[Rfam]
Rfam assigns this 310-nucleotide RNA sequence from Flavobacterium terrae to the family "Bacterial RNase P class A".
From the family's description: Ribonuclease P (RNase P) is a ubiquitous endoribonuclease, found in archaea, bacteria and eukarya as well as chloroplasts and mitochondria.
The family's RNA type in Rfam is ribozyme.
RNA sequence: CACGCAGACCGCCUUAUCGUCCAAUCUUUAAGUUUGGGAGGAAAGUCCGGACACCACAGAGUAAGCAUAGCGGGUAACGCCCGUCCGUCGUGAGGCGAGGACAAGUGCAACAGAAAGUAUGUACAGGUAAUGCUGUAGUGAAACCAGGUAAACUCUAUGCGGUGAAAUGCCAUGUAUAUCAGCAGUUAAGAGUUACUCGCUCGUUGCUGAGGGGUAGGCAGCUCGAUCUUACAAGUAAUUGUAAGGCUAGAUAAAUGAUAAGGCUACAUUUUUAUGUAGACAGAAUCCGGCUUAUAGGUCUGCUUUUUUA
Number, nucleotide and partner (000 for none) at each position: 001c000002a305003c000004g303005c302006a301007g300008a299009c298010c297011g295012c263013c262014u261015u260016a259017u258018c257019g000020u038021c037022c036023a035024a034025u000026c032027u031028u000029u000030a000031a027032g026033u000034u024035u023036g022037g021038g020039a000040g000041g000042a000043a293044a292045g291046u000047c290048c289049g288050g287051a286052c164053a163054c162055c161056a000057c000058a000059g000060a000061g197062u000063a000064a000065g160066c159067a158068u157069a156070g084071c083072g082073g081074g080075u000076a000077a000078c000079g000080c074081c073082c072083g071084u070085c099086c097087g096088u095089c094090g000091u000092g000093a000094g089095g088096c087097g086098a000099g085100g155101a154102c000103a000104a000105g153106u152107g149108c148109a000110a000111c000112a000113g000114a000115a000116a000117g000118u000119a000120u000121g000122u137123a136124c135125a134126g133127g000128u000129a000130a000131u000132g000133c126134u125135g124136u123137a122138g000139u000140g000141a000142a000143a000144c000145c000146a000147g000148g108149u107150a000151a000152a106153c105154u101155c100156u069157a068158u067159g066160c065161g055162g054163u053164g052165a000166a000167a000168u220169g219170c218171c217172a000173u000174g000175u000176a000177u000178a000179u210180c209181a208182g207183c206184a000185g000186u000187u000188a000189a000190g202191a201192g200193u199194u000195a000196c000197u061198c000199g193200c192201u191202c190203g000204u000205u000206g183207c182208u181209g180210a179211g000212g000213g000214g000215u000216a000217g171218g170219c169220a168221g000222c000223u000224c000225g000226a000227u246228c245229u244230u243231a242232c241233a240234a239235g000236u000237a000238a000239u234240u233241g232242u231243a230244a229245g228246g227247c000248u000249a000250g000251a000252u000253a000254a000255a000256u000257g018258a017259u016260a015261a014262g013263g012264c000265u000266a000267c000268a000269u000270u000271u000272u000273u000274a000275u000276g000277u000278a000279g000280a000281c000282a000283g000284a000285a000286u051287c050288c049289g048290g047291c045292u044293u043294a000295u011296a000297g010298g009299u008300c007301u006302g005303c004304u000305u002306u000307u000308u000309u000310a000
Its family is annotated with ribonuclease P activity, dimeric ribonuclease P complex and tRNA processing in the Gene Ontology. Pairs were carried over by alignment from the consensus structure, which is taken from published work.